[Rfam]
The family of this 92-nucleotide RNA from Treponema sp. Marseille-Q4132 is "TD-2 RNA". The base pairs follow the family's consensus structure, which is taken from published work. On this family, see Weinberg et al., Nucleic Acids Res 2007: "Identification of 22 candidate structured RNAs in bacteria using the CMfinder comparative genomics pipeline". The source organism's lineage runs through Bacteria, Spirochaetota, Spirochaetia, Treponemataceae and Treponema.
RNA sequence: GUGUGCGCUUGCGCACACGUAUAUCCGCGAGUUUUCAAAAGAAAACUCGAAGUUAAACGAAACGCGCUAUUUCAGCGUUUCGUUUAACCGUU
Numbered sequence: 001g002u003g004u005g006c007g008c009u010u011g012c013g014c015a016c017a018c019g020u021a022u023a024u025c026c027g028c029g030a031g032u033u034u035u036c037a038a039a040a041g042a043a044a045a046c047u048c049g050a051a052g053u054u055a056a057a058c059g060a061a062a063c064g065c066g067c068u069a070u071u072u073c074a075g076c077g078u079u080u081c082g083u084u085u086a087a088c089c090g091u092u
Stems, first nucleotide, its partner, number of pairs: 001018006028049009052088014